Shown here is an 86-nucleotide RNA sequence from Lepisosteus oculatus, a member of the family "mir-135 microRNA precursor family". A search with the family's covariance model found it, with a score of 73 bits. The family has 88 seed sequences and 2,125 matches in Rfam 15.1. Its family is annotated with gene silencing by miRNA and RISC complex in the Gene Ontology. The source organism's lineage runs through Eukaryota, Actinopteri, Neopterygii, Lepisosteidae and Lepisosteus.
[Rfam]
RNA sequence: GUCCCGCUGUGCUCUAUGGCUUUUUAUUCCUAUCUGACGGCUCUGGAGGCUCAUAUAGGGAUGGAAGCCAUGCAGCACGGUGGGGC
Numbered sequence: 001g002u003c004c005c006g007c008u009g010u011g012c013u014c015u016a017u018g019g020c021u022u023u024u025u026a027u028u029c030c031u032a033u034c035u036g037a038c039g040g041c042u043c044u045g046g047a048g049g050c051u052c053a054u055a056u057a058g059g060g061a062u063g064g065a066a067g068c069c070a071u072g073c074a075g076c077a078c079g080g081u082g083g084g085g086c
Stems, first nucleotide, its partner, number of pairs: 002085012015072009026062008035053003